[Rfam]
RNA: c-di-GMP-I riboswitch aptamer
RNA sequence: UUCUGAACAGGGCAAACCCAUCGAAAGGUGGGGACGCAAAGUUACCGGUCUACGGGGCUGCAGUCGGAGCCCUACGACAGCGGGAUUGCCAGG
Numbered sequence: 001u002u003c004u005g006a007a008c009a010g011g012g013c014a015a016a017c018c019c020a021u022c023g024a025a026a027g028g029u030g031g032g033g034a035c036g037c038a039a040a041g042u043u044a045c046c047g048g049u050c051u052a053c054g055g056g057g058c059u060g061c062a063g064u065c066g067g068a069g070c071c072c073u074a075c076g077a078c079a080g081c082g083g084g085a086u087u088g089c090c091a092g093g
Stems, first nucleotide, its partner, number of pairs: 012037002017032006040087004045083003048078003055072004